[Rfam]
RNA: Burkholderia sRNA 35
Organism: Burkholderia vietnamiensis
RNA sequence: AUGACGCGAUGAAACAGGCGCGCAACGAUUCGGCUUCCGACGCACAUAUGUCAAUGGCACGCAGGAAGCAGAUCCGGGAUUCUCAACCCCCACGAGGAACCCGGAGCCCUGAGCGGACAUCCAUGCGGCUGUGCACCGGCCCCGUGUGGAUGUCCGCUGUUUUUUUC
Numbered sequence: 001a002u003g004a005c006g007c008g009a010u011g012a013a014a015c016a017g018g019c020g021c022g023c024a025a026c027g028a029u030u031c032g033g034c035u036u037c038c039g040a041c042g043c044a045c046a047u048a049u050g051u052c053a054a055u056g057g058c059a060c061g062c063a064g065g066a067a068g069c070a071g072a073u074c075c076g077g078g079a080u081u082c083u084c085a086a087c088c089c090c091c092a093c094g095a096g097g098a099a100c101c102c103g104g105a106g107c108c109c110u111g112a113g114c115g116g117a118c119a120u121c122c123a124u125g126c127g128g129c130u131g132u133g134c135a136c137c138g139g140c141c142c143c144g145u146g147u148g149g150a151u152g153u154c155c156g157c158u159g160u161u162u163u164u165u166u167c
Base pairs, nucleotide, nucleotide: 005022006021007020008019010016033069034068035067036066037065038064041061042060045056046055047054073105074104075103076102077101078100080098081097082096083095084094112158113157114156115155116154117153118152119151120150121149122148123147124146125145126144127141128140129139130138131137